Source information: Rfam assigns this 103-nucleotide sequence from Acetoanaerobium sticklandii to the family "Glycine riboswitch aptamer". NCBI's taxonomy places the organism under Bacteria, Bacillota, Filifactoraceae, Acetoanaerobium, Acetoanaerobium sticklandii. A search with the family's covariance model found it, with a score of 54 bits.
RNA sequence: UUGAGGUUAUCGGGAGAUCUCUUAUGAGAGCCGAAGAAGAAAUACUAUAUGCUCAUCCAGCCUAUAUGUAGAAGCUUUCAGGCAACAGGACCGGUAACUGAUG
Numbered sequence: 001u002u003g004a005g006g007u008u009a010u011c012g013g014g015a016g017a018u019c020u021c022u023u024a025u026g027a028g029a030g031c032c033g034a035a036g037a038a039g040a041a042a043u044a045c046u047a048u049a050u051g052c053u054c055a056u057c058c059a060g061c062c063u064a065u066a067u068g069u070a071g072a073a074g075c076u077u078u079c080a081g082g083c084a085a086c087a088g089g090a091c092c093g094g095u096a097a098c099u100g101a102u103g
Base pairs, nucleotide, nucleotide: 006098007097008096009095010094011093012092013091019028020027021026030083031082032081033079034078037077038076039075043070044069